Rfam assigns this 220-nucleotide RNA from Bacillus velezensis to the family "SR1 sRNA". The organism belongs to Bacillus velezensis, within Bacteria. Rfam's curators put it in the seed alignment. Gene Ontology terms of the family: translation repressor activity, mRNA regulatory element binding and negative regulation of translational initiation. It is annotated as a small RNA. For this family Rfam cites "In vitro analysis of the interaction between the small RNA SR1 and its primary target ahrC mRNA" (Heidrich et al., Nucleic Acids Res, 2007).
[Rfam]
RNA sequence: AACAAGUAAAAAUUAAGCGUUUUCAAAUUCUGAGAAAUGGGGAAUGACAGAUGGGUACAAUUGUUUGCCAAGACUGUAACGAAGCGAUUCAUUACUUUGAGGAUGAGAAGGUCACGACGUUAUACGGAACAUGCUGCGGACAAUGCCAGUGUCAUCUUGAAGAAGAGUAAAAAGCGUAAAAAGGCCCGAAACGAUUUCGUUUCGGGCUUCUUUAUGUUUA
Numbered sequence: 001a002a003c004a005a006g007u008a009a010a011a012a013u014u015a016a017g018c019g020u021u022u023u024c025a026a027a028u029u030c031u032g033a034g035a036a037a038u039g040g041g042g043a044a045u046g047a048c049a050g051a052u053g054g055g056u057a058c059a060a061u062u063g064u065u066u067g068c069c070a071a072g073a074c075u076g077u078a079a080c081g082a083a084g085c086g087a088u089u090c091a092u093u094a095c096u097u098u099g100a101g102g103a104u105g106a107g108a109a110g111g112u113c114a115c116g117a118c119g120u121u122a123u124a125c126g127g128a129a130c131a132u133g134c135u136g137c138g139g140a141c142a143a144u145g146c147c148a149g150u151g152u153c154a155u156c157u158u159g160a161a162g163a164a165g166a167g168u169a170a171a172a173a174g175c176g177u178a179a180a181a182a183g184g185c186c187c188g189a190a191a192c193g194a195u196u197u198c199g200u201u202u203c204g205g206g207c208u209u210c211u212u213u214a215u216g217u218u219u220a
Base pairs, nucleotide, nucleotide: 017112018111020110021109022108023107026104028101029100030099032097033096034095036093037092038091052087054085056083058081064079065078139153140152141151142150173218174217175216176215177214178213179212180211182209183208184207185206186205187204188203189202190201